A member of the RNA family "Plastid-rpl16 group II-D1 intron" from Lobelia urens, 44 nucleotides long. Gene Ontology term of the family: Group II intron splicing. Rfam describes the family as follows. Plastid-rpl16 is a non-coding RNA (ncRNA) recognised in plastids. It was recognised in and intronic region of a ribosome rpl16 gene. The literature on the family includes a 2023 paper in Plant Commun by Richter et al., "Retrograde signaling in plants: A critical review focusing on the GUN pathway and beyond". The family's consensus secondary structure was predicted with LocARNA. Taxonomically the source falls in Lobelia (Eukaryota, Embryophyta, Mesangiospermae, eudicotyledons).
RNA sequence: GAGCUUCGAGUCAAUAAAGACUGAGACGAUUGACUCAUGCACAA
Numbered sequence: 001g002a003g004c005u006u007c008g009a010g011u012c013a014a015u016a017a018a019g020a021c022u023g024a025g026a027c028g029a030u031u032g033a034c035u036c037a038u039g040c041a042c043a044a
Stems, first nucleotide, its partner, number of pairs: 005039001008036008